[Rfam]
RNA sequence: GGACCGAUUUCCUGAUUCUGGGAAAUGCAAGGCCAUACGGACAGCCCGGUCAACUGCCGA
Numbered sequence: 001g002g003a004c005c006g007a008u009u010u011c012c013u014g015a016u017u018c019u020g021g022g023a024a025a026u027g028c029a030a031g032g033c034c035a036u037a038c039g040g041a042c043a044g045c046c047c048g049g050u051c052a053a054c055u056g057c058c059g060a
Base pairs, nucleotide, nucleotide: 002051003050004049005048007026008025009024010023011022012021013020014019